The record is a 90-nucleotide RNA, which matches "PhotoRC-II RNA" in Rfam. The base pairs follow the family's consensus structure, which is taken from published work. It is annotated as a cis-regulatory element.
[Rfam]
RNA sequence: CCUCAUUUUUAUCAUCCCCCUAACCAAGACCACGGGGUUAUAAUGUCUUCUUAUCCACUAGUGAAGGGAUUAGUGGAAAUAUCCGUAUCG
Numbered sequence: 001c002c003u004c005a006u007u008u009u010u011a012u013c014a015u016c017c018c019c020c021u022a023a024c025c026a027a028g029a030c031c032a033c034g035g036g037g038u039u040a041u042a043a044u045g046u047c048u049u050c051u052u053a054u055c056c057a058c059u060a061g062u063g064a065a066g067g068g069a070u071u072a073g074u075g076g077a078a079a080u081a082u083c084c085g086u087a088u089c090g
Base pairs, nucleotide, nucleotide: 014038015037016036017035018034027048028047029046030045055076056075057074058073059072060071061070